[Rfam]
RNA sequence: UGGGUGGCAUCGCCGAGUCCUGCCAGCCGCCCGGGAGUGAGAGAUCCGCAAGGCAGGAGCGGGGGACCCACUUCUGGUCGACCACGGUCGUCCUCGGGGUGAAGCCAGCAGCGCUGGCCGGGUGAUUUCCUCCCACCCGAACCCGACAGCUCACCUCGUAGGCGCCCGAGAGGUUCA
Numbered sequence: 001u002g003g004g005u006g007g008c009a010u011c012g013c014c015g016a017g018u019c020c021u022g023c024c025a026g027c028c029g030c031c032c033g034g035g036a037g038u039g040a041g042a043g044a045u046c047c048g049c050a051a052g053g054c055a056g057g058a059g060c061g062g063g064g065g066a067c068c069c070a071c072u073u074c075u076g077g078u079c080g081a082c083c084a085c086g087g088u089c090g091u092c093c094u095c096g097g098g099g100u101g102a103a104g105c106c107a108g109c110a111g112c113g114c115u116g117g118c119c120g121g122g123u124g125a126u127u128u129c130c131u132c133c134c135a136c137c138c139g140a141a142c143c144c145g146a147c148a149g150c151u152c153a154c155c156u157c158g159u160a161g162g163c164g165c166c167c168g169a170g171a172g173g174u175u176c177a
Base pairs, nucleotide, nucleotide: 011164012163013162014161018058019057020056021055022054023053024052059159060158061157062156063155064154069096097144098143099142105117106116107115108114120138121137122136123135